A member of the RNA family "Pseudomonas sRNA P36" from Pseudomonas indica, 61 nucleotides long. It is annotated as a small RNA. Rfam 15.1 lists 53 matches to the family in 38 species. Lineage of the source: Bacteria > Pseudomonadati > Pseudomonadota > Gammaproteobacteria > Pseudomonas. Pairs were carried over by alignment from the consensus structure, which was predicted with RNAalifold. The literature on the family includes a 2006 paper in Nucleic Acids Res by Livny et al., "Identification of 17 Pseudomonas aeruginosa sRNAs and prediction of sRNA-encoding genes in 10 diverse pathogens using the bioinformatic tool sRNAPredict2".

[Rfam]
RNA sequence: CAACUUGUUACCGCCUCAACAUCUCGUAACAAAAGCCGGGUCUUACGGUAACGGAAACCCG
Numbered sequence: 001c002a003a004c005u006u007g008u009u010a011c012c013g014c015c016u017c018a019a020c021a022u023c024u025c026g027u028a029a030c031a032a033a034a035g036c037c038g039g040g041u042c043u044u045a046c047g048g049u050a051a052c053g054g055a056a057a058c059c060c061g
Base pairs, nucleotide, nucleotide: 005032006031007030008029009028010027011026013025037061038060039059040058041057043055046053047052